[Rfam]
RNA sequence: AUGGGAUGCCCAGGAUGCCUGGUUGGACUAGAGUCUCUGAGAACUUUUCUGAGGAUCGUUGAAACCACCUGAUCCACUCUUA
Numbered sequence: 001a002u003g004g005g006a007u008g009c010c011c012a013g014g015a016u017g018c019c020u021g022g023u024u025g026g027a028c029u030a031g032a033g034u035c036u037c038u039g040a041g042a043a044c045u046u047u048u049c050u051g052a053g054g055a056u057c058g059u060u061g062a063a064a065c066c067a068c069c070u071g072a073u074c075c076a077c078u079c080u081u082a
Stems, first nucleotide, its partner, number of pairs: 003081004007076002017073001019071001021069003025065001031057002034054004039049003

This 82-nucleotide sequence from Physeter macrocephalus belongs to the Rfam family "Small nucleolar RNA ZL8". The base pairs follow the family's consensus structure, which was predicted with RNAfold.